[Rfam]
RNA: Vault RNA
RNA sequence: GUGCUGGUUUAGCUCAGUGGCUUACUUCCUCAUAAAUGUUAUUUCAUGGUCUGCAGGCGAGAGGUACGACUCCGGGCGCUGUCCAGUGCUUUU
Numbered sequence: 001g002u003g004c005u006g007g008u009u010u011a012g013c014u015c016a017g018u019g020g021c022u023u024a025c026u027u028c029c030u031c032a033u034a035a036a037u038g039u040u041a042u043u044u045c046a047u048g049g050u051c052u053g054c055a056g057g058c059g060a061g062a063g064g065u066a067c068g069a070c071u072c073c074g075g076g077c078g079c080u081g082u083c084c085a086g087u088g089c090u091u092u093u
Base pairs, nucleotide, nucleotide: 002088003087004086005085006084007083012077013076014075015074017073019071020070027069028068030066